[Rfam]
RNA sequence: CUGGGACCAAUGAUGGCCUGUCUGUAAACCCAGUCCCUGGGUAGGGCAGGCCUGAUGAACCUGAG
Numbered sequence: 001c002u003g004g005g006a007c008c009a010a011u012g013a014u015g016g017c018c019u020g021u022c023u024g025u026a027a028a029c030c031c032a033g034u035c036c037c038u039g040g041g042u043a044g045g046g047c048a049g050g051c052c053u054g055a056u057g058a059a060c061c062u063g064a065g
Stems, first nucleotide, its partner, number of pairs: 001065002004062002015052009030040003
RNA: Selenocysteine insertion sequence 1